[Rfam]
RNA sequence: GCACUUCAGGCUUUUCUCUCCUCCCAGAAAAAGCCUGAGUGAUCCAAAACAUCCUCCUCCCGGUUUUGGAUCCUGCAACGAAGCCCACCGGAUCUCCUCCCCCGGUGGGCUUUCGUC
Numbered sequence: 001g002c003a004c005u006u007c008a009g010g011c012u013u014u015u016c017u018c019u020c021c022u023c024c025c026a027g028a029a030a031a032a033g034c035c036u037g038a039g040u041g042a043u044c045c046a047a048a049a050c051a052u053c054c055u056c057c058u059c060c061c062g063g064u065u066u067u068g069g070a071u072c073c074u075g076c077a078a079c080g081a082a083g084c085c086c087a088c089c090g091g092a093u094c095u096c097c098u099c100c101c102c103c104g105g106u107g108g109g110c111u112u113u114c115g116u117c
Stems, first nucleotide, its partner, number of pairs: 007037003011033002013030004041072010081112011
Shown here is a 117-nucleotide sequence from Cohaesibacter celericrescens, a member of the family "Alphaproteobacterial ar14". It scores 84 bits against the family's covariance model. The family has 118 seed sequences and 784 matches in Rfam 15.1. Taxonomically the source falls in Cohaesibacter (Bacteria, Pseudomonadati, Alphaproteobacteria, Cohaesibacteraceae). Rfam classes the family as a small RNA.